[Rfam]
RNA: SAM riboswitch aptamer (S box leader)
RNA sequence: GCCUUAUCAAGAGCGGUGGAGGGAACGGCCCGAUGAAACCCGGCAACCUGCGCAUUGCGCAAGGUGCCAAAUCCGGCGAGAGAAUCGAAAGAUGAGGA
Numbered sequence: 001g002c003c004u005u006a007u008c009a010a011g012a013g014c015g016g017u018g019g020a021g022g023g024a025a026c027g028g029c030c031c032g033a034u035g036a037a038a039c040c041c042g043g044c045a046a047c048c049u050g051c052g053c054a055u056u057g058c059g060c061a062a063g064g065u066g067c068c069a070a071a072u073c074c075g076g077c078g079a080g081a082g083a084a085u086c087g088a089a090a091g092a093u094g095a096g097g098a
Stems, first nucleotide, its partner, number of pairs: 002097007013041001015040003021031003026075003042068004047064002049061004072090001077087003